Rfam assigns this 83-nucleotide RNA from Cucurbita maxima to the family "mir-156 microRNA precursor family". The literature on the family includes a 2002 paper in Genes Dev by Reinhart et al., "MicroRNAs in plants". Rfam describes the family as follows. This family represents the plant microRNA (miRNA) precursor mir-156. The match comes from Rfam's covariance-model search (73 bits).
RNA sequence: UUGACAGAAGAGAGUGAGCACACAGAGGCUUUUGGUAUAAUUAUAUGCCAUUGCUCUUGCGUGCUCACUUCUCUUUCUGUCAG
Numbered sequence: 001u002u003g004a005c006a007g008a009a010g011a012g013a014g015u016g017a018g019c020a021c022a023c024a025g026a027g028g029c030u031u032u033u034g035g036u037a038u039a040a041u042u043a044u045a046u047g048c049c050a051u052u053g054c055u056c057u058u059g060c061g062u063g064c065u066c067a068c069u070u071c072u073c074u075u076u077c078u079g080u081c082a083g
Base pairs, nucleotide, nucleotide: 001083002082003081004080005079006078007077008076009075010073011072012071013069014068015067016066017065018064019063020062021061023059024058025057